[Rfam]
RNA sequence: GCUGGCCGGAUGGGACAGGAGGCAUGAAUGAGCCAUCUUUCCAAUGCCUUUCUGUCUUUUCUGGUCCAG
Numbered sequence: 001g002c003u004g005g006c007c008g009g010a011u012g013g014g015a016c017a018g019g020a021g022g023c024a025u026g027a028a029u030g031a032g033c034c035a036u037c038u039u040u041c042c043a044a045u046g047c048c049u050u051u052c053u054g055u056c057u058u059u060u061c062u063g064g065u066c067c068a069g
Stems, first nucleotide, its partner, number of pairs: 001067001004066007012058009021048005026041003030037002
The record is a 69-nucleotide sequence from Homo sapiens, which matches "mir-4743 microRNA precursor family" in Rfam.
Rfam's curators put it in the seed alignment.
The family's consensus secondary structure was predicted with RNAalifold.
Lineage of the source: Eukaryota > Craniata > Sarcopterygii > Boreoeutheria > Homo.